[Rfam]
RNA: ASpks TB sRNA
RNA sequence: CUUCAGCGACCCCAACCACAGCGGCUCAUCCCGGUCUUGCCCAUAGGUCGCCAGCAGUGCCUGCGCCUC
Numbered sequence: 001c002u003u004c005a006g007c008g009a010c011c012c013c014a015a016c017c018a019c020a021g022c023g024g025c026u027c028a029u030c031c032c033g034g035u036c037u038u039g040c041c042c043a044u045a046g047g048u049c050g051c052c053a054g055c056a057g058u059g060c061c062u063g064c065g066c067c068u069c
Stems, first nucleotide, its partner, number of pairs: 014026001016024002031065001032059002037054003041050001043048001